The record is a 61-nucleotide RNA from Rhodanobacter denitrificans, which matches "GP20-b RNA" in Rfam.
The family's consensus secondary structure is taken from published work.

RNA sequence: UUUCGGUACUGUAGACGUAAAAGAACAGGACGUCACCGGCCGCGACCGGGUAAAAAGCGAA
Numbered sequence: 001u002u003u004c005g006g007u008a009c010u011g012u013a014g015a016c017g018u019a020a021a022a023g024a025a026c027a028g029g030a031c032g033u034c035a036c037c038g039g040c041c042g043c044g045a046c047c048g049g050g051u052a053a054a055a056a057g058c059g060a061a
Stems, first nucleotide, its partner, number of pairs: 001017001003015002009028004036049003